[Rfam]
RNA sequence: CCGAUCGAUGAUGAAGAGCUUGUCAGUUAUAUCCUUACUGGCCUCGACCUUGACUACAAUCAGGUGGUCUUGGCCGUGCUUGCACGUGUCGAGCCCAUCUCUGUGAGCGAGCUCUACAACCAGCUUCUCUCCUUCGAGC
Numbered sequence: 001c002c003g004a005u006c007g008a009u010g011a012u013g014a015a016g017a018g019c020u021u022g023u024c025a026g027u028u029a030u031a032u033c034c035u036u037a038c039u040g041g042c043c044u045c046g047a048c049c050u051u052g053a054c055u056a057c058a059a060u061c062a063g064g065u066g067g068u069c070u071u072g073g074c075c076g077u078g079c080u081u082g083c084a085c086g087u088g089u090c091g092a093g094c095c096c097a098u099c100u101c102u103g104u105g106a107g108c109g110a111g112c113u114c115u116a117c118a119a120c121c122a123g124c125u126u127c128u129c130u131c132c133u134u135c136g137a138g139c
Stems, first nucleotide, its partner, number of pairs: 005137004093108002096105003
RNA: Small nucleolar RNA Z247